[Rfam]
The record is an 85-nucleotide RNA sequence from Tractidigestivibacter scatoligenes, which matches "ZMP/ZTP riboswitch aptamer (pfl RNA motif)" in Rfam. The family's consensus secondary structure is taken from published work. The source organism's lineage runs through Bacteria, Bacillati, Actinomycetota, Coriobacteriia and Tractidigestivibacter.
RNA sequence: GAAACGCGCUGUUACUGACGGAUAAUCGUGGGACACCACGGGGAAGCAGCGUGAACACAACCCGCCGACCGUCUGGGCAAGCGCA
Numbered sequence: 001g002a003a004a005c006g007c008g009c010u011g012u013u014a015c016u017g018a019c020g021g022a023u024a025a026u027c028g029u030g031g032g033a034c035a036c037c038a039c040g041g042g043g044a045a046g047c048a049g050c051g052u053g054a055a056c057a058c059a060a061c062c063c064g065c066c067g068a069c070c071g072u073c074u075g076g077g078c079a080a081g082c083g084c085a
Stems, first nucleotide, its partner, number of pairs: 005053008015043002017073005028039004064078003